The record is a 67-nucleotide RNA from Oryza meyeriana, which matches "Small nucleolar RNA Z105" in Rfam. The match comes from Rfam's covariance-model search (55 bits). Lineage of the source: Eukaryota > Viridiplantae > Streptophyta > Poaceae > Oryza meyeriana. Rfam classes the family as a C/D-box small nucleolar RNA. Pairs were carried over by alignment from the consensus structure, which was predicted with CMfinder.

RNA sequence: UUGGCAUGAUGAGGAAAACUGAUGUUUUCUGAUUUAUUUGAUGAUAAAUUCAUCCUACUCAUUCUGC
Dot-bracket structure: .....((((...............(...(..........).....)............)))).....
Numbered sequence: 001u002u003g004g005c006a007u008g009a010u011g012a013g014g015a016a017a018a019c020u021g022a023u024g025u026u027u028u029c030u031g032a033u034u035u036a037u038u039u040g041a042u043g044a045u046a047a048a049u050u051c052a053u054c055c056u057a058c059u060c061a062u063u064c065u066g067c
Stems, first nucleotide, its partner, number of pairs: 006062004025046001029040001